[Rfam]
Shown here is a 68-nucleotide sequence from Rattus norvegicus, a member of the family "MAT2A 3'UTR stem loop A". It is annotated as a cis-regulatory element. A reference for the family is Parker et al. (2011), "New families of human regulatory RNA structures identified by comparative analysis of vertebrate genomes", Genome Res. Pairs were carried over by alignment from the consensus structure, which is taken from published work. A search with the family's covariance model found it, with a score of 59 bits.
RNA sequence: CCCUCUCACCACUACCAGACUUGUUGGCAUAGGUUACAGAGAAGCCUUCAAGCUCUGAUGGAAAGGGC
Numbered sequence: 001c002c003c004u005c006u007c008a009c010c011a012c013u014a015c016c017a018g019a020c021u022u023g024u025u026g027g028c029a030u031a032g033g034u035u036a037c038a039g040a041g042a043a044g045c046c047u048u049c050a051a052g053c054u055c056u057g058a059u060g061g062a063a064a065g066g067g068c
Stems, first nucleotide, its partner, number of pairs: 001067003009061003016057004022050002026046003030036001
Rfam 15.1 lists 595 matches to the family in 507 species.